[Rfam]
RNA sequence: UCUGUAUAAGCGCUGGAACGGAGGAACCAAUUAAUGGGGCGUAUCUCUGCCAGGAGUAAGGCAAAAGGUGUAAGGCGGAAUAAAAAACUGUUUAUUCAUCCUUCAUCCCUUAUCCCUUAGAGAAGAGCAUCUCUCAGCUCUAGCCCGUCAGCUAACUUCGUAGGCAUUGAGAGGAGACUGA
Number, nucleotide and partner (000 for none) at each position: 001u017002c016003u015004g000005u000006a000007u000008a000009a000010g000011c000012g000013c000014u000015g003016g002017a001018a161019c160020g159021g158022a157023g156024g000025a000026a000027c000028c036029a035030a000031u000032u000033a000034a000035u029036g028037g146038g145039g144040c000041g000042u000043a000044u000045c122046u121047c120048u119049g000050c000051c000052a000053g000054g000055a000056g000057u000058a000059a000060g000061g000062c000063a000064a000065a000066a000067g000068g000069u000070g000071u000072a000073a000074g000075g000076c000077g000078g000079a000080a000081u000082a000083a000084a000085a000086a000087a000088c000089u000090g000091u000092u000093u000094a000095u000096u000097c000098a000099u000100c000101c000102u000103u000104c000105a000106u000107c000108c000109c000110u000111u000112a000113u000114c000115c000116c000117u000118u000119a048120g047121a046122g045123a000124a000125g140126a139127g138128c137129a000130u000131c000132u000133c000134u000135c000136a000137g128138c127139u126140c125141u000142a000143g000144c039145c038146c037147g000148u000149c000150a000151g000152c000153u000154a000155a000156c023157u022158u021159c020160g019161u018162a000163g000164g000165c000166a000167u000168u000169g000170a000171g000172a000173g000174g000175a000176g000177a000178c000179u000180g000181a000